[Rfam]
RNA sequence: GAAAAAUGAUGAUUAUUUCUUGUGUCUUAUGGUUGCAGUGAAGACCUCAGAUCCAACUCUGAUUUCACUCUAGUU
Dot-bracket structure: ((((..........................................................)))).........
Numbered sequence: 001g002a003a004a005a006a007u008g009a010u011g012a013u014u015a016u017u018u019c020u021u022g023u024g025u026c027u028u029a030u031g032g033u034u035g036c037a038g039u040g041a042a043g044a045c046c047u048c049a050g051a052u053c054c055a056a057c058u059c060u061g062a063u064u065u066c067a068c069u070c071u072a073g074u075u
Stems, first nucleotide, its partner, number of pairs: 001066004
This 75-nucleotide RNA from Cyanoderma ruficeps belongs to the Rfam family "Small nucleolar RNA SNORD19". Its Rfam clan is "SNORD19 clan". The organism belongs to Cyanoderma, within Eukaryota.